[Rfam]
RNA sequence: GCUGUGUGAUGAUACUCCUAAUGACUGAACAUGCUGUAGUUGGUCCAUAGUAUGUAUGUGAUGUUACAGCAUUGUUUCAAGACGGGACUGAUGGCAGC
Numbered sequence: 001g002c003u004g005u006g007u008g009a010u011g012a013u014a015c016u017c018c019u020a021a022u023g024a025c026u027g028a029a030c031a032u033g034c035u036g037u038a039g040u041u042g043g044u045c046c047a048u049a050g051u052a053u054g055u056a057u058g059u060g061a062u063g064u065u066a067c068a069g070c071a072u073u074g075u076u077u078c079a080a081g082a083c084g085g086g087a088c089u090g091a092u093g094g095c096a097g098c
Stems, first nucleotide, its partner, number of pairs: 001095004
RNA: Small nucleolar RNA SNORD21
Organism: Tricholaema leucomelas